About this RNA
Lysine riboswitch aptamer: a 167-nucleotide RNA from Mycoplasmopsis anatis. The organism belongs to Mycoplasmopsis anatis, within Bacteria. The match comes from Rfam's covariance-model search (77 bits). The base pairs follow the family's consensus structure, which is taken from published work.

Nucleotides: 167
Stems, first nucleotide, its partner, number of pairs: 006162006016078006023070002032062006082109012110136004115132004120127001
Number, partner (000 for none) and nucleotide at each position: 001000a002000g003000a004000u005000g006162u007161u008160a009159u010158a011157g012000a013000g014000g015000a016078g017077c018076u019075u020074u021073u022000a023070a024069c025000a026000a027000u028000a029000g030000u031000a032062g033061a034060u035059a036058g037057u038000c039000c040000a041000g042000c043000a044000g045000g046000c047000g048000u049000g050000c051000a052000a053000u054000g055000a056000c057037a058036c059035u060034a061033u062032u063000g064000a065000a066000a067000g068000g069024g070023u071000a072000u073021a074020a075019a076018g077017g078016c079000c080000g081000a082109a083108a084107u085106g086105a087104u088103u089102u090101u091100a092099a093098u094000g095000g096000c097000a098093a099092u100091u101090a102089a103088a104087a105086u106085u107084g108083u109082u110136g111135a112134u113133a114000a115132a116131a117130a118129a119000g120127c121000a122000u123000a124000a125000a126000a127120g128000a129118u130117u131116u132115u133113u134112a135111u136110u137000c138000u139000u140000u141000g142000g143000u144000a145000a146000a147000u148000c149000c150000a151000u152000u153000g154000g155000u156000g157011c158010u159009a160008u161007a162006a163000c164000u165000u166000c167000g